[Rfam]
Shown here is a 251-nucleotide sequence from Capsicum baccatum, a member of the family "RNase MRP". Taxonomically the source falls in Capsicum (Eukaryota, Mesangiospermae, eudicotyledons, lamiids). Rfam's curators write: RNase MRP is an enzymatically active ribonucleoprotein with two distinct roles in eukaryotes. Rfam 15.1 lists 3,510 matches to the family in 2,315 species.

RNA sequence: AGACCGCAAGACGAUGUGAAUGGGCUUGGGCCUGUUCAUUGGGUUAUGGCUCAGGAAAGUCCCCGGGCCUAUUCUGCAGAGAUGCAGGCUUGGAAACGAGUUAGCUUCACGUGAUUUAGGAGUUCAAAUGGGCUGAGACGAGGUGGAGCCCAUGGACUCUUACCGGAAGUGAUAUUGGCCUGCUAAUUACAGUGAUUCACGUGGUCUGGUUUAAACCGGAAAAACUUAACGGGGCUUAUGAUCUUGCGGUC
Numbered sequence: 001a002g003a004c005c006g007c008a009a010g011a012c013g014a015u016g017u018g019a020a021u022g023g024g025c026u027u028g029g030g031c032c033u034g035u036u037c038a039u040u041g042g043g044u045u046a047u048g049g050c051u052c053a054g055g056a057a058a059g060u061c062c063c064c065g066g067g068c069c070u071a072u073u074c075u076g077c078a079g080a081g082a083u084g085c086a087g088g089c090u091u092g093g094a095a096a097c098g099a100g101u102u103a104g105c106u107u108c109a110c111g112u113g114a115u116u117u118a119g120g121a122g123u124u125c126a127a128a129u130g131g132g133c134u135g136a137g138a139c140g141a142g143g144u145g146g147a148g149c150c151c152a153u154g155g156a157c158u159c160u161u162a163c164c165g166g167a168a169g170u171g172a173u174a175u176u177g178g179c180c181u182g183c184u185a186a187u188u189a190c191a192g193u194g195a196u197u198c199a200c201g202u203g204g205u206c207u208g209g210u211u212u213a214a215a216c217c218g219g220a221a222a223a224a225c226u227u228a229a230c231g232g233g234g235c236u237u238a239u240g241a242u243c244u245u246g247c248g249g250u251c
Base pairs, nucleotide, nucleotide: 002251003250004249005248006247007246008245009244010243011242014202015201016200017199018198019197025049057237058236059235061234062233063232064231075086076085077084078083087102088101089100090099091098092097104170105169106168107167108166111163112162119160120159121158122157130151131150132149133148140144205220206219207218208217209216